[Rfam]
RNA: freshwater-2 RNA
RNA sequence: GCCUGCCUUCGAGUAGGACUUAUGCGGUACUCGCCGCGUAGACCCUAGAACGGCAAUGAUUAAACAAAGGAGAAAUCAUUAUG
Numbered sequence: 001g002c003c004u005g006c007c008u009u010c011g012a013g014u015a016g017g018a019c020u021u022a023u024g025c026g027g028u029a030c031u032c033g034c035c036g037c038g039u040a041g042a043c044c045c046u047a048g049a050a051c052g053g054c055a056a057u058g059a060u061u062a063a064a065c066a067a068a069g070g071a072g073a074a075a076u077c078a079u080u081a082u083g
Base pairs, nucleotide, nucleotide: 002017003016004015005014006013021040022039023038024037025036026035027034041054043053044052